Source information:
The record is an 88-nucleotide RNA sequence from Clunio marinus, which matches "mir-317 microRNA precursor family" in Rfam. The family has 25 seed sequences and 153 matches in Rfam 15.1. The organism belongs to Clunio, within Eukaryota. Gene Ontology terms of the family: miRNA-mediated post-transcriptional gene silencing and RISC complex. A search with the family's covariance model found it, with a score of 65 bits. On this family, see Stark et al., Genome Res 2007: "Systematic discovery and characterization of fly microRNAs using 12 Drosophila genomes". The family's consensus secondary structure was predicted with RNAalifold.
RNA sequence: UUCUUUAUAUGCUGGGGACCACGCUGGGUUCGCUUUGUAAUUAAGAAUUAGUGAACACAGCUGGUGGUAUCUCAGUUUAUGCUGAAAC
Numbered sequence: 001u002u003c004u005u006u007a008u009a010u011g012c013u014g015g016g017g018a019c020c021a022c023g024c025u026g027g028g029u030u031c032g033c034u035u036u037g038u039a040a041u042u043a044a045g046a047a048u049u050a051g052u053g054a055a056c057a058c059a060g061c062u063g064g065u066g067g068u069a070u071c072u073c074a075g076u077u078u079a080u081g082c083u084g085a086a087a088c
Base pairs, nucleotide, nucleotide: 008079009078011076012075015073016071017070018068019067021065022064024060025059026058028056030054031053
Dot-bracket structure: .......((.((..(((((.((.(((.(.((.....................)).).)))...)).)).)).).)).)).........